[Rfam]
RNA: c-di-GMP-I-GGC riboswitch aptamer
RNA sequence: CCUCGAAAGGGCUAACCCGUCGCGAGGCGGGGGCGCAAAGCUACGGGCCUCCAACUCCCCCCAAAUUGGGUUGGAGGUCGCCUGGCUGCCGAAG
Numbered sequence: 001c002c003u004c005g006a007a008a009g010g011g012c013u014a015a016c017c018c019g020u021c022g023c024g025a026g027g028c029g030g031g032g033g034c035g036c037a038a039a040g041c042u043a044c045g046g047g048c049c050u051c052c053a054a055c056u057c058c059c060c061c062c063a064a065a066u067u068g069g070g071u072u073g074g075a076g077g078u079c080g081c082c083u084g085g086c087u088g089c090c091g092a093a094g
Stems, first nucleotide, its partner, number of pairs: 001094001003091001011036002016031006034080001039087004045082002047078011
Dot-bracket structure: (.(.......((...((((((....))))))..[))..((((..(((((((((((((..........))))))))))).])).))))...)..)